Shown here is a 52-nucleotide RNA from Pyruvatibacter mobilis, a member of the family "serC leader". Pairs were carried over by alignment from the consensus structure.
RNA sequence: GCGCGGGCCACGCUUCCCCAACGAAGCGCGACCCUCUGCAAGGAGGGAGAUA
Numbered sequence: 001g002c003g004c005g006g007g008c009c010a011c012g013c014u015u016c017c018c019c020a021a022c023g024a025a026g027c028g029c030g031a032c033c034c035u036c037u038g039c040a041a042g043g044a045g046g047g048a049g050a051u052a
Stems, first nucleotide, its partner, number of pairs: 011028006032047006
About this RNA: It scores 55 bits against the family's covariance model. Rfam classes the family as a cis-regulatory leader. A reference for the family is Corbino et al. (2005), "Evidence for a second class of S-adenosylmethionine riboswitches and other regulatory RNA motifs in alpha-proteobacteria", Genome Biol. About the family: This family is a putative regulatory RNA structure that is found upstream of the serC-serA operon in some alpha-proteobacteria. Its family is annotated with regulation of gene expression in the Gene Ontology.